Description
The family of this 134-nucleotide RNA from Carnobacterium maltaromaticum is "PyrR binding site". It scores 59 bits against the family's covariance model. The base pairs follow the family's consensus structure, which is taken from published work. The family has 41 seed sequences and 1,498 matches in Rfam 15.1. Rfam's curators write: This family represents the PyrR binding site and terminator structure. This RNA structure is found upstream of a variety of genes involved in pyrimidine biosynthesis and transport. The alignment also includes a portion of the antiterminator structure. The source organism's lineage runs through Bacteria, Bacillati, Lactobacillales, Carnobacterium and Carnobacterium maltaromaticum.
RNA sequence: AUUUCCUUUAACAAUAGUCCUGUGAGGCUAAGAAGGAGCAUGCACAAAAGUUAAGCUUGGAAUAGGCUAAGACUUUUGUAAAAGAUAGACUAACUGUGCCCUCUUACCUUAAACUAGGUGAGAGGUUUUUUUGU
Numbered sequence: 001a002u003u004u005c006c007u008u009u010a011a012c013a014a015u016a017g018u019c020c021u022g023u024g025a026g027g028c029u030a031a032g033a034a035g036g037a038g039c040a041u042g043c044a045c046a047a048a049a050g051u052u053a054a055g056c057u058u059g060g061a062a063u064a065g066g067c068u069a070a071g072a073c074u075u076u077u078g079u080a081a082a083a084g085a086u087a088g089a090c091u092a093a094c095u096g097u098g099c100c101c102u103c104u105u106a107c108c109u110u111a112a113a114c115u116a117g118g119u120g121a122g123a124g125g126u127u128u129u130u131u132u133g134u
Stems, first nucleotide, its partner, number of pairs: 003038007015030005045078008054068005096129001098127001100125010